RNA: Group II catalytic intron D1-D4-6
Organism: Paraburkholderia ginsengiterrae
RNA sequence: CGGAUCCCUAACAACGAAGGUCUAGCAAACCACGUUGUCCCCGAGACAUACUGCGAAGCAUUGACAGGGGUACGUGCGGGCCAGCCAUUGAGCCGCGAUAGUUUAAAUAUCCCGAGUGCCGACGCUGUUGACAUUGCGGAAGGCAACACGAUGGGGCGCGAUAUUGCGAGCAUUCCGUCGACUCGGCGUGGUCGAAGACCC
Numbered sequence: 001c002g003g004a005u006c007c008c009u010a011a012c013a014a015c016g017a018a019g020g021u022c023u024a025g026c027a028a029a030c031c032a033c034g035u036u037g038u039c040c041c042c043g044a045g046a047c048a049u050a051c052u053g054c055g056a057a058g059c060a061u062u063g064a065c066a067g068g069g070g071u072a073c074g075u076g077c078g079g080g081c082c083a084g085c086c087a088u089u090g091a092g093c094c095g096c097g098a099u100a101g102u103u104u105a106a107a108u109a110u111c112c113c114g115a116g117u118g119c120c121g122a123c124g125c126u127g128u129u130g131a132c133a134u135u136g137c138g139g140a141a142g143g144c145a146a147c148a149c150g151a152u153g154g155g156g157c158g159c160g161a162u163a164u165u166g167c168g169a170g171c172a173u174u175c176c177g178u179c180g181a182c183u184c185g186g187c188g189u190g191g192u193c194g195a196a197g198a199c200c201c
Base pairs, nucleotide, nucleotide: 012037013036014035015034016033019031020030021029023169025167026166039070040069041068042067045065047063048062049060051055089195090193092192093191094190095189096188097187112186113185114184115183116182117181118144119143120142123138124137125136149180150179151178152177153176154175155174156173158171159170